[Rfam]
RNA sequence: GUUGAAUAUGCGCUGAAUUUUCCGCAGGGAAAUCGGGGGAACCAAACUCGGCUGAAAGGCCGACGGGGUGAAUCGGAAGCAGGCCGUAAAGGCUGUAACCGUAGGGCUUUCCACAGUCCGAAUCCGCCAGCUAACCUCGUAAGCAAAGGUGGGAUAAUGA
Numbered sequence: 001g002u003u004g005a006a007u008a009u010g011c012g013c014u015g016a017a018u019u020u021u022c023c024g025c026a027g028g029g030a031a032a033u034c035g036g037g038g039g040a041a042c043c044a045a046a047c048u049c050g051g052c053u054g055a056a057a058g059g060c061c062g063a064c065g066g067g068g069u070g071a072a073u074c075g076g077a078a079g080c081a082g083g084c085c086g087u088a089a090a091g092g093c094u095g096u097a098a099c100c101g102u103a104g105g106g107c108u109u110u111c112c113a114c115a116g117u118c119c120g121a122a123u124c125c126g127c128c129a130g131c132u133a134a135c136c137u138c139g140u141a142a143g144c145a146a147a148g149g150u151g152g153g154a155u156a157a158u159g160a
Stems, first nucleotide, its partner, number of pairs: 012144003018032005034139005043065001066125003074101003104119004
A member of the RNA family "c-di-AMP riboswitch aptamer (ydaO/yuaA leader)" from Paenibacillus sp. FSL R7-0331, 160 nucleotides long. The match comes from Rfam's covariance-model search (74 bits).